[Rfam]
RNA sequence: AGGCAUAUCCCUUGUUCUCGUGGCUGUCUGGUUAGGAUGGCCGAA
Numbered sequence: 001a002g003g004c005a006u007a008u009c010c011c012u013u014g015u016u017c018u019c020g021u022g023g024c025u026g027u028c029u030g031g032u033u034a035g036g037a038u039g040g041c042c043g044a045a
Stems, first nucleotide, its partner, number of pairs: 002010002022042008